[Rfam]
RNA sequence: UAAUAUUACAGACAGAGAUGUACUGUAUACGCUUGGAAACUGAUACUUUGUAUUAAGCGUAUUUUUAAGUACGCCAGUCAAGUGGGAAAGCAGCUGAGAAAUCAGCUGUUUUUUUGUAUUUUC
Numbered sequence: 001u002a003a004u005a006u007u008a009c010a011g012a013c014a015g016a017g018a019u020g021u022a023c024u025g026u027a028u029a030c031g032c033u034u035g036g037a038a039a040c041u042g043a044u045a046c047u048u049u050g051u052a053u054u055a056a057g058c059g060u061a062u063u064u065u066u067a068a069g070u071a072c073g074c075c076a077g078u079c080a081a082g083u084g085g086g087a088a089a090g091c092a093g094c095u096g097a098g099a100a101a102u103c104a105g106c107u108g109u110u111u112u113u114u115u116g117u118a119u120u121u122u123c
Stems, first nucleotide, its partner, number of pairs: 007027005012021003030084006039078004043053003057074006086113012
Source information:
The record is a 123-nucleotide RNA sequence from Blautia hydrogenotrophica, which matches "DUF3800-I RNA" in Rfam. From the family's description: Actinobacteria, Firmicutes, Fusobacteria, Proteobacteria (1 example), Tenericutes (2 examples).